Rfam assigns this 125-nucleotide RNA sequence from Arabidopsis thaliana to the family "MIR3440 microRNA precursor family". The organism belongs to Arabidopsis, within Eukaryota. Rfam 15.1 lists 5 matches to the family in 4 species. It is one of the family's seed sequences.
RNA sequence: UCUGGUAUUUUGCUCAAGUAUGGUUUUCUUGGCCCAUCCACUUCUAAUGUGUUUUGUAACUAAUGCAAAAUGUGCAUUAGAAGUGGAUUGGUCAAGGGAAGCGUACUUGUGCAAAAUGCGGCAGU
Numbered sequence: 001u002c003u004g005g006u007a008u009u010u011u012g013c014u015c016a017a018g019u020a021u022g023g024u025u026u027u028c029u030u031g032g033c034c035c036a037u038c039c040a041c042u043u044c045u046a047a048u049g050u051g052u053u054u055u056g057u058a059a060c061u062a063a064u065g066c067a068a069a070a071u072g073u074g075c076a077u078u079a080g081a082a083g084u085g086g087a088u089u090g091g092u093c094a095a096g097g098g099a100a101g102c103g104u105a106c107u108u109g110u111g112c113a114a115a116a117u118g119c120g121g122c123a124g125u
Base pairs, nucleotide, nucleotide: 001123003121005119006118007117008116009115010114011113012112013111015109016108017107018106019105020104021103022102024100025099026098027097028096029095030094031093032092033091034090036088037087038086039085040084041083042082043081044080045079046078047077048076049075050074051073052072053069054068055067056066057065